[Rfam]
MIR845_2 microRNA precursor family: a 131-nucleotide sequence from Vitis vinifera. The base pairs follow the family's consensus structure, which was predicted with WAR. A reference for the family is Jaillon et al. (2007), "The grapevine genome sequence suggests ancestral hexaploidization in major angiosperm phyla", Nature.
RNA sequence: AUAAUGCACAUUAAUUAUCCUUGAGGCCAUAAGAUAAACAAAAACCCUUCAAAAACAAGUUAGCACACCCUAGAAUGGUUCUAGCACGAUUACUAACCUAUAACUUUGAUAUCAGUUGAUGGAAAAAACCC
Numbered sequence: 001a002u003a004a005u006g007c008a009c010a011u012u013a014a015u016u017a018u019c020c021u022u023g024a025g026g027c028c029a030u031a032a033g034a035u036a037a038a039c040a041a042a043a044a045c046c047c048u049u050c051a052a053a054a055a056c057a058a059g060u061u062a063g064c065a066c067a068c069c070c071u072a073g074a075a076u077g078g079u080u081c082u083a084g085c086a087c088g089a090u091u092a093c094u095a096a097c098c099u100a101u102a103a104c105u106u107u108g109a110u111a112u113c114a115g116u117u118g119a120u121g122g123a124a125a126a127a128a129c130c131c
Base pairs, nucleotide, nucleotide: 009121010120011119012118013117014116015115016114022108023107024106025105026104029101030100031099033097048086053080054079056077057076060073061072062071063070
The family has 2 seed sequences and 180 matches in Rfam 15.1. Its family is annotated with miRNA-mediated post-transcriptional gene silencing and RISC complex in the Gene Ontology.